[Rfam]
The record is a 50-nucleotide RNA from Devosia sp. I507, which matches "Guanidine-II riboswitch aptamer (mini-ykkC)" in Rfam.
The match comes from Rfam's covariance-model search (38 bits).
Simpler in structure and has fewer highly conserved nucleotide positions than the ykkC-yxkD leader. Despite this each of its two stem-loop structures directly bind free guanidine. Therefore, mini-ykkC RNA motif represents a distinct class of guanidine-sensing RNAs.
RNA sequence: AAGCGAGGACGACCUCCCCCAUUCCGGGAUCAGCGUUCGGGACGGCCCGG
Number, nucleotide and partner (000 for none) at each position: 001a000002a000003g018004c000005g016006a015007g014008g013009a000010c000011g000012a000013c008014c007015u006016c005017c000018c003019c000020c000021a000022u000023u000024c000025c000026g000027g000028g000029a000030u000031c000032a000033g000034c000035g000036u000037u050038c049039g048040g047041g046042a000043c000044g000045g000046c041047c040048c039049g038050g037